[Rfam]
RNA sequence: GAAGGAGCAAUACCAACCAUCUUGAUAAAAUAAUAGGGUCGUUAUUGCUCCUUCAUUA
Numbered sequence: 001g002a003a004g005g006a007g008c009a010a011u012a013c014c015a016a017c018c019a020u021c022u023u024g025a026u027a028a029a030a031u032a033a034u035a036g037g038g039u040c041g042u043u044a045u046u047g048c049u050c051c052u053u054c055a056u057u058a
Stems, first nucleotide, its partner, number of pairs: 001054012014041001020035001022033003
Shown here is a 58-nucleotide RNA sequence from Papaver nudicaule, a member of the family "Plastid-psbA-3 3UTR RNA".
About the family: Plastid psbA-3 is a non-coding RNA (ncRNA) present in plastids. It was identified in inverted repeat sequences in the 3 prime untranslate region (3UTR) of photosystem II quinone-binding protein (psbA).
The family is grouped with related families in Rfam's "Plastid-psbA 3UTR RNA clan".
It scores 52 bits against the family's covariance model.
Taxonomically the source falls in Papaver (Eukaryota, Viridiplantae, Embryophyta, Papaveroideae).
Rfam classes the family as a cis-regulatory element.